This 179-nucleotide sequence from Marinomonas spartinae belongs to the Rfam family "FMN riboswitch aptamer (RFN element)". About the family: The RFN element is a highly conserved domain that is found frequently in the 5'-untranslated regions of prokaryotic mRNAs that encode for flavin mononucleotide (FMN) biosynthesis and transport proteins. This element is a metabolite-dependent riboswitch that directly binds FMN in the absence of proteins. In Bacillus subtilis, the riboswitch most likely controls gene expression by causing premature transcription termination within the 5' untranslated region of the ribDEAHT operon and precluding access to the ribosome-binding site of ypaA mRNA.The FMN riboswitch structure, reported in present an FMN-bound six-stem junction, adopts a butterfly-like scaffold, stapled together by opposingly directed but nearly identically folded peripheral domains. The source organism's lineage runs through Bacteria, Pseudomonadati, Gammaproteobacteria, Oceanospirillaceae and Marinomonas.
[Rfam]
RNA sequence: AUCGAACUUCGGGGCGGGGCGAAAUUCCCCACCGGCGGUAUAUUACAAGCCAUGCUUCGUAAUCAGCCCGCGAGCGCCUUUUUCAGAUGAUCUCCUAAGGGAGAAUGCAGGAAAAAGGGUCAGCAGAUCUGGUGAGACGCCAGAGCCGACGGUUAUAGUCCGGAUGAUAGAAGAUCGAC
Numbered sequence: 001a002u003c004g005a006a007c008u009u010c011g012g013g014g015c016g017g018g019g020c021g022a023a024a025u026u027c028c029c030c031a032c033c034g035g036c037g038g039u040a041u042a043u044u045a046c047a048a049g050c051c052a053u054g055c056u057u058c059g060u061a062a063u064c065a066g067c068c069c070g071c072g073a074g075c076g077c078c079u080u081u082u083u084c085a086g087a088u089g090a091u092c093u094c095c096u097a098a099g100g101g102a103g104a105a106u107g108c109a110g111g112a113a114a115a116a117g118g119g120u121c122a123g124c125a126g127a128u129c130u131g132g133u134g135a136g137a138c139g140c141c142a143g144a145g146c147c148g149a150c151g152g153u154u155a156u157a158g159u160c161c162g163g164a165u166g167a168u169a170g171a172a173g174a175u176c177g178a179c
Base pairs, nucleotide, nucleotide: 003177004176005175007173008172009171010170017029018028019027031159032158033148034147035071036070037069038068066146067145074124075123128144129143130142131141132140150162151161152160